[Rfam]
RNA sequence: AUACGCGAGUAUUGAAUGCCGAAGACAGCAGGUGCCGCAAGGCGUAAGGUAGAAACACCUGCCGAGGAACAUACAAAACUCACACCGGAAUUUUGUAGGCUUCUUCGUCUUUGGGCGGAGAAGCCUUUUUCCAUAAAAAU
Numbered sequence: 001a002u003a004c005g006c007g008a009g010u011a012u013u014g015a016a017u018g019c020c021g022a023a024g025a026c027a028g029c030a031g032g033u034g035c036c037g038c039a040a041g042g043c044g045u046a047a048g049g050u051a052g053a054a055a056c057a058c059c060u061g062c063c064g065a066g067g068a069a070c071a072u073a074c075a076a077a078a079c080u081c082a083c084a085c086c087g088g089a090a091u092u093u094u095g096u097a098g099g100c101u102u103c104u105u106c107g108u109c110u111u112u113g114g115g116c117g118g119a120g121a122a123g124c125c126u127u128u129u130u131c132c133a134u135a136a137a138a139a140u
Base pairs, nucleotide, nucleotide: 028062029061030060031059032058033057034043035042036041098125099124100123101122102121103120104119105118106117107116108115109114
RNA: Ribosomal protein L10 leader
Organism: Eubacteriaceae bacterium Marseille-Q4139